[Rfam]
RNA: mir-399 microRNA precursor family
RNA sequence: GAAAGCAUUACAGGGCGAAUCCUCUAUUGGCAGUGGAAGUUGAUGACCCUUAUAUGUUAUUUUCUCAUCAUUUUCCUCUGCCAAAGGAGAUUUGCCUCGCAAUGCUUCA
Numbered sequence: 001g002a003a004a005g006c007a008u009u010a011c012a013g014g015g016c017g018a019a020u021c022c023u024c025u026a027u028u029g030g031c032a033g034u035g036g037a038a039g040u041u042g043a044u045g046a047c048c049c050u051u052a053u054a055u056g057u058u059a060u061u062u063u064c065u066c067a068u069c070a071u072u073u074u075c076c077u078c079u080g081c082c083a084a085a086g087g088a089g090a091u092u093u094g095c096c097u098c099g100c101a102a103u104g105c106u107u108c109a
Base pairs, nucleotide, nucleotide: 005105006104007103008102009101011099013097014096015095016094017093018092019091022089023088024087025086028083029082030081031080032079033078035076036075